Background
A member of the RNA family "Small Cajal body-specific RNA 7" from Felis catus, 344 nucleotides long. The base pairs follow the family's consensus structure. Rfam's curators put it in the seed alignment.
RNA sequence: UGGAAAUGAUGAAAUAGAGAUAAUUGGGUGUUGAAUGUUGUGUGAUUGGAAACUUUUCAUAUGUAAGUUAAGUAAUUAAGCUUAAUAUUUUAUAGAUAAUAGAGUGUGUGUGUGUGCCAUUUGUGUGUGUGUGUGUGUGUGUGCGUGCACUCAUGGAGGCUAUUGAAAGGGGGCACUGACUGGUGAUGCUGAUAUUGGAGUGCAUCUGAGGCAGUUGUAAAAAUACAUGGGUUGUUGAUUACAACGUUGCCGAUGAUUAUAACCCAAGAACAGCUCACCUAAGUAGCCUAGCACCCUAAAAUCUCUAACAGGUUCAUCAAACAUGGCCCUGUGAUCUGAUCCAA
Number, nucleotide and partner (000 for none) at each position: 001u343002g342003g341004a340005a000006a000007u000008g000009a000010u000011g000012a000013a000014a000015u000016a000017g000018a000019g000020a000021u000022a000023a000024u000025u000026g000027g000028g000029u000030g000031u000032u000033g000034a000035a000036u000037g000038u000039u000040g000041u000042g000043u000044g000045a000046u000047u000048g000049g000050a000051a000052a000053c000054u000055u000056u000057u000058c000059a000060u000061a000062u000063g000064u000065a000066a000067g000068u000069u000070a000071a000072g000073u000074a000075a000076u000077u000078a000079a000080g000081c000082u000083u000084a000085a000086u000087a000088u000089u000090u000091u000092a000093u000094a000095g000096a000097u000098a000099a000100u000101a000102g000103a000104g000105u000106g000107u000108g000109u000110g000111u000112g000113u000114g000115u000116g000117c000118c000119a000120u000121u000122u000123g000124u000125g000126u000127g000128u000129g000130u000131g000132u000133g000134u000135g000136u000137g000138u000139g000140u000141g000142u000143g000144c000145g000146u000147g000148c000149a000150c000151u000152c000153a000154u000155g000156g000157a000158g000159g000160c000161u000162a000163u000164u000165g000166a000167a000168a000169g000170g000171g000172g000173g000174c000175a000176c000177u000178g000179a000180c000181u000182g000183g000184u000185g000186a000187u000188g000189c000190u000191g000192a000193u000194a000195u000196u000197g000198g000199a000200g000201u000202g000203c000204a000205u000206c000207u000208g000209a000210g000211g000212c000213a000214g245215u244216u243217g242218u241219a240220a239221a000222a236223a235224u234225a233226c231227a000228u000229g000230g000231g226232u000233u225234g224235u223236u222237g000238a000239u220240u219241a218242c217243a216244a215245c214246g000247u000248u000249g000250c000251c000252g000253a000254u000255g000256a000257u000258u000259a000260u000261a000262a000263c000264c000265c000266a000267a000268g000269a000270a000271c000272a000273g000274c000275u000276c000277a000278c000279c000280u000281a000282a000283g000284u000285a000286g000287c000288c000289u000290a000291g000292c000293a000294c000295c000296c000297u000298a000299a000300a000301a000302u000303c000304u000305c000306u000307a000308a000309c000310a000311g000312g000313u000314u000315c000316a000317u000318c000319a000320a000321a000322c000323a000324u000325g000326g000327c000328c000329c000330u000331g000332u000333g000334a000335u000336c000337u000338g000339a000340u004341c003342c002343a001344a000
By type it is a small Cajal body RNA. Taxonomically the source falls in Felis (Eukaryota, Opisthokonta, Teleostomi, Dipnotetrapodomorpha).